RNA: Archaeal signal recognition particle RNA
Organism: Ignicoccus hospitalis
RNA sequence: AACCGGGGUAGGGCCGGAGGGCUCGCCCCCCUCCCCCCGUAAGGGGCCCGAAUUGGGCGAAAGGCGGGGGCCAGUAACUCCCCGAGGCUCCCCGCGGUCCCGUGGGGGGCGUCGUCCGCGCAAUGGCCCUCGCCCCGCGGGGCCCGCGGUGGCGGAGCCUCCGCCGAAGGGCGGAGGUCAACCGCCUUAACCGGGGGAACCAGGUCAGGCCCGGAAGGGAGCAGCCUAACCCCGGCCGCGGCGCGUUCGCGGGAGAACGGGGGGAGCGCGGGCGGCGCUGACCCCCGCGGGGGCGCCGCGGGGGCUCCGGUC
Numbered sequence: 001a002a003c004c005g006g007g008g009u010a011g012g013g014c015c016g017g018a019g020g021g022c023u024c025g026c027c028c029c030c031c032u033c034c035c036c037c038c039g040u041a042a043g044g045g046g047c048c049c050g051a052a053u054u055g056g057g058c059g060a061a062a063g064g065c066g067g068g069g070g071c072c073a074g075u076a077a078c079u080c081c082c083c084g085a086g087g088c089u090c091c092c093c094g095c096g097g098u099c100c101c102g103u104g105g106g107g108g109g110c111g112u113c114g115u116c117c118g119c120g121c122a123a124u125g126g127c128c129c130u131c132g133c134c135c136c137g138c139g140g141g142g143c144c145c146g147c148g149g150u151g152g153c154g155g156a157g158c159c160u161c162c163g164c165c166g167a168a169g170g171g172c173g174g175a176g177g178u179c180a181a182c183c184g185c186c187u188u189a190a191c192c193g194g195g196g197g198a199a200c201c202a203g204g205u206c207a208g209g210c211c212c213g214g215a216a217g218g219g220a221g222c223a224g225c226c227u228a229a230c231c232c233c234g235g236c237c238g239c240g241g242c243g244c245g246u247u248c249g250c251g252g253g254a255g256a257a258c259g260g261g262g263g264g265a266g267c268g269c270g271g272g273c274g275g276c277g278c279u280g281a282c283c284c285c286c287g288c289g290g291g292g293g294c295g296c297c298g299c300g301g302g303g304g305c306u307c308c309g310g311u312c
Base pairs, nucleotide, nucleotide: 002311003310004309005308006307007306008305009304012072013071014070015069016034017033018032019031020030021029047068048067049066050065053062080303081302082301083300084299086297087296088295096294098292099291100290101289102288103287104286105285106284107283108279109278110277111276112275113274114273115272116271117270118269119268120267121266127263128262129261130260131259132258134253135252136251137250138249139248140247141246142244143243145241146239147238148237149188151186152185153184154183155182157178158177159176160175161174162173163172164171165170191235192234193233194232195231196230202227203226204225205224210219211218212217